[Rfam]
RNA: Purine riboswitch aptamer
Organism: Thermoanaerobacterium thermosaccharolyticum
RNA sequence: AAUUUUAUAAUAUUUGAUCCACAUAUAAUCUGGUGAAUAGGCACUAGAGUAUCUACAAAGAGCCGUAACUCUUUACUAUGGGGAGUUAUUGUUGUACU
Numbered sequence: 001a002a003u004u005u006u007a008u009a010a011u012a013u014u015u016g017a018u019c020c021a022c023a024u025a026u027a028a029u030c031u032g033g034u035g036a037a038u039a040g041g042c043a044c045u046a047g048a049g050u051a052u053c054u055a056c057a058a059a060g061a062g063c064c065g066u067a068a069c070u071c072u073u074u075a076c077u078a079u080g081g082g083g084a085g086u087u088a089u090u091g092u093u094g095u096a097c098u
Base pairs, nucleotide, nucleotide: 018084019083020082022080023079024078025077029048030047031046032045033044034043035042057074058073059072060071061070062069